RNA sequence: AUGCCCCAUGAUGUUCAGGUCCGCCGCAUCUCCUGGGUCGUGGGGUGGCCGGUCAAGAUUAAGUGCACAGUGGCAUCCUCGUUCCACGCUCUUGUUUUGACCGGCCCUCGA
Numbered sequence: 001a002u003g004c005c006c007c008a009u010g011a012u013g014u015u016c017a018g019g020u021c022c023g024c025c026g027c028a029u030c031u032c033c034u035g036g037g038u039c040g041u042g043g044g045g046u047g048g049c050c051g052g053u054c055a056a057g058a059u060u061a062a063g064u065g066c067a068c069a070g071u072g073g074c075a076u077c078c079u080c081g082u083u084c085c086a087c088g089c090u091c092u093u094g095u096u097u098u099g100a101c102c103g104g105c106c107c108u109c110g111a
Base pairs, nucleotide, nucleotide: 003046004045005044006043007042008041009040010039014037015036016035017034018033019032047106048105049104050103051102052101053100054099055098056097057096